[Rfam]
RNA sequence: ACAACGGCUCUUCUCAGAGCCACCCACCUCUCCAUACAAAGAGCCA
Numbered sequence: 001a002c003a004a005c006g007g008c009u010c011u012u013c014u015c016a017g018a019g020c021c022a023c024c025c026a027c028c029u030c031u032c033c034a035u036a037c038a039a040a041g042a043g044c045c046a
Stems, first nucleotide, its partner, number of pairs: 006021006

A member of the RNA family "Histone 3' UTR stem-loop" from Aquarana catesbeiana, 46 nucleotides long. It scores 35 bits against the family's covariance model. The family has 50 seed sequences and 44,596 matches in Rfam 15.1.